The family of this 247-nucleotide RNA from [Clostridium] symbiosum is "T-box leader".
The family has 48 seed sequences and 19,395 matches in Rfam 15.1.
The family's consensus secondary structure is taken from published work.
By type it is a cis-regulatory leader.
It scores 98 bits against the family's covariance model.
RNA sequence: UAAAAUGCGAUGAGAAGAAGAGUAAGACAGGGAAACUGUCCAGAGAGAGGCAUGGAAACAGGUGUGAUUGCCUUACAGCGGAUUUGUCUGAAGACCGGCUUCGAGUGUCCCUUAAUCGGGAACGGUGACUCCGUUAUAGUCAUGAAACGAUAACCUGCAUGCUUUACGUACAGGUUACCGCCUUCAAUGAGAGGUCCGGAUAAUAUCCGGUCAAUCAGGGUGGAACCGCGAGAAAUUCGUCCCUUGA
Number, nucleotide and partner (000 for none) at each position: 001u000002a000003a000004a000005a000006u000007g106008c105009g000010a000011u000012g000013a000014g000015a101016a100017g099018a000019a000020g000021a000022g000023u000024a000025a089026g088027a087028c086029a085030g084031g000032g000033a000034a000035a000036c078037u077038g076039u000040c000041c000042a000043g000044a000045g000046a000047g074048a073049g072050g071051c070052a069053u000054g000055g000056a000057a000058a000059c000060a000061g000062g000063u000064g000065u000066g000067a000068u000069u052070g051071c050072c049073u048074u047075a000076c038077a037078g036079c000080g000081g000082a000083u000084u030085u029086g028087u027088c026089u025090g000091a000092a000093g000094a000095c000096c000097g000098g000099c017100u016101u015102c000103g000104a000105g008106u007107g000108u121109c120110c119111c118112u000113u000114a000115a000116u000117c000118g111119g110120g109121a108122a000123c133124g132125g131126u000127g000128a000129c000130u000131c125132c124133g123134u000135u000136a000137u000138a000139g000140u000141c000142a000143u000144g000145a000146a000147a000148c000149g000150a000151u000152a000153a000154c000155c000156u000157g000158c000159a000160u000161g000162c000163u000164u000165u000166a000167c000168g000169u000170a000171c000172a000173g000174g000175u000176u000177a000178c000179c000180g000181c000182c000183u000184u000185c000186a000187a000188u000189g000190a000191g000192a000193g000194g212195u000196c210197c209198g208199g207200a206201u000202a000203a000204u000205a000206u200207c199208c198209g197210g196211u000212c194213a000214a000215u000216c000217a244218g243219g242220g241221u000222g000223g000224a000225a000226c000227c000228g240229c239230g238231a237232g236233a000234a000235a000236u232237u231238c230239g229240u228241c220242c219243c218244u217245u000246g000247a000